Shown here is a 146-nucleotide sequence from Shewanella pealeana, a member of the family "Glycine riboswitch aptamer". This family represents the bacterial glycine riboswitch.
RNA sequence: GGACGAGCCUCUGGAGAGACUGUGAGCAGCUAAGUGUUCGUAAGCUUAAUUGUCACACAGCGCCGAAGGCGAAAGUGUAAACUCAGCUAUUAAACCUAGCUAUGAGGUUACGCGAAACGCUCAGGCAAAAGGACAGAGGAGAGGAU
Numbered sequence: 001g002g003a004c005g006a007g008c009c010u011c012u013g014g015a016g017a018g019a020c021u022g023u024g025a026g027c028a029g030c031u032a033a034g035u036g037u038u039c040g041u042a043a044g045c046u047u048a049a050u051u052g053u054c055a056c057a058c059a060g061c062g063c064c065g066a067a068g069g070c071g072a073a074a075g076u077g078u079a080a081a082c083u084c085a086g087c088u089a090u091u092a093a094a095c096c097u098a099g100c101u102a103u104g105a106g107g108u109u110a111c112g113c114g115a116a117a118c119g120c121u122c123a124g125g126c127a128a129a130a131g132g133a134c135a136g137a138g139g140a141g142a143g144g145a146u
Stems, first nucleotide, its partner, number of pairs: 008139006020060004062126003065122002069120003075113006